This 415-nucleotide RNA sequence from Luteococcus japonicus belongs to the Rfam family "Bacterial RNase P class A".
About the family: Ribonuclease P (RNase P) is a ubiquitous endoribonuclease, found in archaea, bacteria and eukarya as well as chloroplasts and mitochondria.
It scores 267 bits against the family's covariance model.
The source organism's lineage runs through Bacteria, Actinomycetes, Propionibacteriales, Propionibacteriaceae and Luteococcus japonicus.
RNA sequence: CGAGUUCGUCGGGUGACCGCGGCGGGAGCAAUCCCGUCGAGGAAAGUCCGGACUCCACAGGGCAGGGUGGUCGGUAACACCGACCCGGAGUGAUCCGCGGGAAAGUGCCACAGAGAACAGACCGCCAGCGCCGCACUUCCUCGUGAAGUGUUGCUGGUAAGGGUGAAACGGCGGUGCAAGAGACCACCGGCGCCCCAGGCGACUGGGGCGGCCAGGCAAACCCCACCCGGAGCAAGACCAAGAAGGCCCACCCCGGUGGGUCGCGGACGUGAUCGAGGGCUGCCCGCCCGAGCGUCCGGGUAGGUCGCACGACGCGUGAGCGUCGAAGGCGUCUGGCAACAGGCGUCGCAGAUGGAUGGUCACCCAUCGCGGGAAACCGCGGGGACAAAAUCCGGCUUACAGACGAACUCGUCCC
Numbered sequence: 001c002g003a004g005u006u007c008g009u010c011g012g013g014u015g016a017c018c019g020c021g022g023c024g025g026g027a028g029c030a031a032u033c034c035c036g037u038c039g040a041g042g043a044a045a046g047u048c049c050g051g052a053c054u055c056c057a058c059a060g061g062g063c064a065g066g067g068u069g070g071u072c073g074g075u076a077a078c079a080c081c082g083a084c085c086c087g088g089a090g091u092g093a094u095c096c097g098c099g100g101g102a103a104a105g106u107g108c109c110a111c112a113g114a115g116a117a118c119a120g121a122c123c124g125c126c127a128g129c130g131c132c133g134c135a136c137u138u139c140c141u142c143g144u145g146a147a148g149u150g151u152u153g154c155u156g157g158u159a160a161g162g163g164u165g166a167a168a169c170g171g172c173g174g175u176g177c178a179a180g181a182g183a184c185c186a187c188c189g190g191c192g193c194c195c196c197a198g199g200c201g202a203c204u205g206g207g208g209c210g211g212c213c214a215g216g217c218a219a220a221c222c223c224c225a226c227c228c229g230g231a232g233c234a235a236g237a238c239c240a241a242g243a244a245g246g247c248c249c250a251c252c253c254c255g256g257u258g259g260g261u262c263g264c265g266g267a268c269g270u271g272a273u274c275g276a277g278g279g280c281u282g283c284c285c286g287c288c289c290g291a292g293c294g295u296c297c298g299g300g301u302a303g304g305u306c307g308c309a310c311g312a313c314g315c316g317u318g319a320g321c322g323u324c325g326a327a328g329g330c331g332u333c334u335g336g337c338a339a340c341a342g343g344c345g346u347c348g349c350a351g352a353u354g355g356a357u358g359g360u361c362a363c364c365c366a367u368c369g370c371g372g373g374a375a376a377c378c379g380c381g382g383g384g385a386c387a388a389a390a391u392c393c394g395g396c397u398u399a400c401a402g403a404c405g406a407a408c409u410c411g412u413c414c415c
Stems, first nucleotide, its partner, number of pairs: 001411010011400001012364007020039008044398003048395005053232004060285004065228005070084005085099001086097004100223002105221002107217003122162002124158007132150003170188002173185003190212001191210008236306004265297006277289004328347008